A member of the RNA family "Alphaproteobacteria transfer-messenger RNA" from Rhabdonatronobacter sediminivivens, 351 nucleotides long.
[Rfam]
RNA sequence: CCUCUUGCGCUGCGCGGGCUUCGCGCCUACAUCUGGGGUGUCCCGCAAGGGACUAUGGACAUAAACGCGCUCGUAAUAAGCGGAUCGGACCCGGGGGCGGUACCCGGCGGCUCCACCAUACACCCGGUCAUUGGCGGGACAUGGGGCCGAAACAGGAUCGACGAACGUCUAAAGGGGUUUGCUUUGUCCCGGUGAGCUACCACCGUUAUCGGUGCGCUAAGUACAGUUGCCAAUGACAACCGUGCUCCGGUCGCAGUCGCAGCGUAAGCUGUCACAAGACCGAAACUUAAGCCCUUGCGCCUAGCCGCGUAAGGCGGGGUCCGCAGGCACCUGGCAACAGAAGCCUGCACU
Numbered sequence: 001c002c003u004c005u006u007g008c009g010c011u012g013c014g015c016g017g018g019c020u021u022c023g024c025g026c027c028u029a030c031a032u033c034u035g036g037g038g039u040g041u042c043c044c045g046c047a048a049g050g051g052a053c054u055a056u057g058g059a060c061a062u063a064a065a066c067g068c069g070c071u072c073g074u075a076a077u078a079a080g081c082g083g084a085u086c087g088g089a090c091c092c093g094g095g096g097g098c099g100g101u102a103c104c105c106g107g108c109g110g111c112u113c114c115a116c117c118a119u120a121c122a123c124c125c126g127g128u129c130a131u132u133g134g135c136g137g138g139a140c141a142u143g144g145g146g147c148c149g150a151a152a153c154a155g156g157a158u159c160g161a162c163g164a165a166c167g168u169c170u171a172a173a174g175g176g177g178u179u180u181g182c183u184u185u186g187u188c189c190c191g192g193u194g195a196g197c198u199a200c201c202a203c204c205g206u207u208a209u210c211g212g213u214g215c216g217c218u219a220a221g222u223a224c225a226g227u228u229g230c231c232a233a234u235g236a237c238a239a240c241c242g243u244g245c246u247c248c249g250g251u252c253g254c255a256g257u258c259g260c261a262g263c264g265u266a267a268g269c270u271g272u273c274a275c276a277a278g279a280c281c282g283a284a285a286c287u288u289a290a291g292c293c294c295u296u297g298c299g300c301c302u303a304g305c306c307g308c309g310u311a312a313g314g315c316g317g318g319g320u321c322c323g324c325a326g327g328c329a330c331c332u333g334g335c336a337a338c339a340g341a342a343g344c345c346u347g348c349a350c351u
Stems, first nucleotide, its partner, number of pairs: 040053005057189005067182002069178004081167002085164003091107005108149007190205004196215002199213003317332004323348006
About the family: Bacterial tmRNA, also known as 10Sa RNA or SsrA, is named for its dual tRNA and mRNA-like properties.